[Rfam]
RNA sequence: GGCGAGAUAGCUCAGCUGGCUAGAGCACGCGGUUCAUACCCGCGGUGUCGAGGGUUCAAGUCCCCCUCUCGCUA
Numbered sequence: 001g002g003c004g005a006g007a008u009a010g011c012u013c014a015g016c017u018g019g020c021u022a023g024a025g026c027a028c029g030c031g032g033u034u035c036a037u038a039c040c041c042g043c044g045g046u047g048u049c050g051a052g053g054g055u056u057c058a059a060g061u062c063c064c065c066c067u068c069u070c071g072c073u074a
Base pairs, nucleotide, nucleotide: 001073002072003071004070005069006068007067010026011025012024013023028044029043030042031041032040050066052064053063054062
tRNA: a 74-nucleotide RNA sequence from Lachnospiraceae bacterium OF09-33XD. The base pairs follow the family's consensus structure, which is taken from published work. Lineage of the source: Bacteria > Bacillota > Clostridia > Lachnospirales > Lachnospiraceae. It is annotated as a transfer RNA.